Rfam assigns this 96-nucleotide RNA sequence from Diceros bicornis to the family "Small nucleolar RNA SNORD67". The base pairs follow the family's consensus structure. Rfam links the family to the GO terms nucleolus and RNA processing. About the family: snoRNA HBII-166 belongs to the C/D family of snoRNAs. The family's RNA type in Rfam is C/D-box small nucleolar RNA. The family has 15 seed sequences and 781 matches in Rfam 15.1. On this family, see Huttenhofer et al., EMBO J 2001: "RNomics: an experimental approach that identifies 201 candidates for novel, small, non-messenger RNAs in mouse".
RNA sequence: UGUAAGAGUGAUGGCUGCACACUGGUCAUAGCAUUAAAGGAGGCAGGCAGUGUUCAGUGCUGUCCUGAAGAAAAAAGUGCACAGGGACCACUCAUA
Numbered sequence: 001u002g003u004a005a006g007a008g009u010g011a012u013g014g015c016u017g018c019a020c021a022c023u024g025g026u027c028a029u030a031g032c033a034u035u036a037a038a039g040g041a042g043g044c045a046g047g048c049a050g051u052g053u054u055c056a057g058u059g060c061u062g063u064c065c066u067g068a069a070g071a072a073a074a075a076a077g078u079g080c081a082c083a084g085g086g087a088c089c090a091c092u093c094a095u096a
Base pairs, nucleotide, nucleotide: 004095006093007092008091021058022057023056024055025048026047027046031044032043034041035040